RNA: RNase MRP
Organism: Mizuhopecten yessoensis
RNA sequence: GUGUUCCUUGAAUACUUGCACUCUAUUGAAGCUACAAACUGAGGCUCUGUGCCUCAAACUAGCUUUAGGGAAAGUCCCCAGACCUAUGGUAGAAAGUACCUAGAUGUGAAGUUGAUCCACUGGCCCUACCUCCCUUAUAAUGCCAUGAAGUGAUUUCACUGAGCUGGGAGGUGGUACAGGAUGUUGUCACAGCAUAGUCAUGCAAGUAGUGUACUCGUACACCAACUAAAUGGGGCUCAUUCUUGAGAAACA
Numbered sequence: 001g002u003g004u005u006c007c008u009u010g011a012a013u014a015c016u017u018g019c020a021c022u023c024u025a026u027u028g029a030a031g032c033u034a035c036a037a038a039c040u041g042a043g044g045c046u047c048u049g050u051g052c053c054u055c056a057a058a059c060u061a062g063c064u065u066u067a068g069g070g071a072a073a074g075u076c077c078c079c080a081g082a083c084c085u086a087u088g089g090u091a092g093a094a095a096g097u098a099c100c101u102a103g104a105u106g107u108g109a110a111g112u113u114g115a116u117c118c119a120c121u122g123g124c125c126c127u128a129c130c131u132c133c134c135u136u137a138u139a140a141u142g143c144c145a146u147g148a149a150g151u152g153a154u155u156u157c158a159c160u161g162a163g164c165u166g167g168g169a170g171g172u173g174g175u176a177c178a179g180g181a182u183g184u185u186g187u188c189a190c191a192g193c194a195u196a197g198u199c200a201u202g203c204a205a206g207u208a209g210u211g212u213a214c215u216c217g218u219a220c221a222c223c224a225a226c227u228a229a230a231u232g233g234g235g236c237u238c239a240u241u242c243u244u245g246a247g248a249a250a251c252a
Base pairs, nucleotide, nucleotide: 002252003251004250005249007247008246009245010244011243014207015206016205017204018203019202026068027067028066029065030064031063032062041055042054043053044052045051073237074236076235077234078233079232088100089099090098091097103117104116105115120179121178122177126174127173128172129171130170131169132168133167134166142164143163150159151158152157209222210221211220212219213218